This 320-nucleotide part of an RNA from Chironomus tentans belongs to the Rfam family "Eukaryotic large subunit ribosomal RNA".

[Rfam]
RNA sequence: GAGUCUAUCUAGUAUGCGAGUAAAUGGAUAGUUUAUGAAAUCUAUUUGCAUAAUAAACUUGACUGUUUUUAUGGGAUUACGAGAUUAGAUACUAACGUGUUUGUCUCUUCCAUCCCGGGGUAUUUUCAUCAACAUAUGCUUGCAUAUGGAAAAUAUACCAUGAGCACACUGGAUACGACCCGAAAGAUGGUGAACUAUGCCUGAUCAGGUCGAAGUCAGGGGAAACCCUGAUGGAGGACCGAAGCAGUUCUGACGUGCAAAUCGAUUGUCAGAAUUGGGCAUAGGGGCGAAAGACCAAUCGAACCAUCUAGUAGCUGGUU
Dot-bracket structure: .....((((((((.(((..(((..(((((..........)))))..)))...(......)............(((((...(((((.................)))))....))))).((((((((...(................)...))).))).))....))).))))))))...((.(...((((((...((((((((((((.((((...(((((((....)))))))....))))...((((.((.((........))))))))..).))))))))))).((.......))......))))))......).))..